RNA sequence: GGAAACUUGAGAAAGGCUGCCCCUAGUACGAGAGGACCGGGGUGGACGAACCUCUGGUGUGCCAGUUGUCCCGCCAGGGGCACGGCUGGUUGGCUACGUUCGGAAGUGAUAACCGCUGAAUGCAUCUAAGCGGGAAGCAUGUUUCAAGAUGAGGUUUCCCACCACCUUGAGUGGUUAAGGCCCCCAGCAGAACACUGGGUUGAUAGGCCGGAGGUGUACAGCAGUAAUGCCUAGCCGACCGGUACUAAUAGGCCGAGG
Numbered sequence: 001g002g003a004a005a006c007u008u009g010a011g012a013a014a015g016g017c018u019g020c021c022c023c024u025a026g027u028a029c030g031a032g033a034g035g036a037c038c039g040g041g042g043u044g045g046a047c048g049a050a051c052c053u054c055u056g057g058u059g060u061g062c063c064a065g066u067u068g069u070c071c072c073g074c075c076a077g078g079g080g081c082a083c084g085g086c087u088g089g090u091u092g093g094c095u096a097c098g099u100u101c102g103g104a105a106g107u108g109a110u111a112a113c114c115g116c117u118g119a120a121u122g123c124a125u126c127u128a129a130g131c132g133g134g135a136a137g138c139a140u141g142u143u144u145c146a147a148g149a150u151g152a153g154g155u156u157u158c159c160c161a162c163c164a165c166c167u168u169g170a171g172u173g174g175u176u177a178a179g180g181c182c183c184c185c186a187g188c189a190g191a192a193c194a195c196u197g198g199g200u201u202g203a204u205a206g207g208c209c210g211g212a213g214g215u216g217u218a219c220a221g222c223a224g225u226a227a228u229g230c231c232u233a234g235c236c237g238a239c240c241g242g243u244a245c246u247a248a249u250a251g252g253c254c255g256a257g258g
Stems, first nucleotide, its partner, number of pairs: 001159008011145004017045007047102005055096003062089005067082006106140003113133005162174003176256001179254004183199005204247003207243005213236002221230003
A member of the RNA family "Bacterial large subunit ribosomal RNA" from Nocardioides jishulii, 258 nucleotides of a longer RNA.
It scores 2789 bits against the family's covariance model.